The family of this 90-nucleotide RNA sequence from Durio zibethinus is "mir-156 microRNA precursor family". It scores 79 bits against the family's covariance model. A reference for the family is Ambros (2001), "microRNAs: tiny regulators with great potential", Cell. Rfam describes the family as follows. This family represents the plant microRNA (miRNA) precursor mir-156. The organism belongs to Durio, within Eukaryota.
[Rfam]
RNA sequence: GUGACAGAAGAGAGUGAGCACCCAGGGUUUUUUCUUGCAUGCUUUGGCUUUCAUGCUCGAAGCUCUGCGUGCUCACCCUCUAUCUGUCAU
Numbered sequence: 001g002u003g004a005c006a007g008a009a010g011a012g013a014g015u016g017a018g019c020a021c022c023c024a025g026g027g028u029u030u031u032u033u034c035u036u037g038c039a040u041g042c043u044u045u046g047g048c049u050u051u052c053a054u055g056c057u058c059g060a061a062g063c064u065c066u067g068c069g070u071g072c073u074c075a076c077c078c079u080c081u082a083u084c085u086g087u088c089a090u
Stems, first nucleotide, its partner, number of pairs: 001090008010080003014076008023067005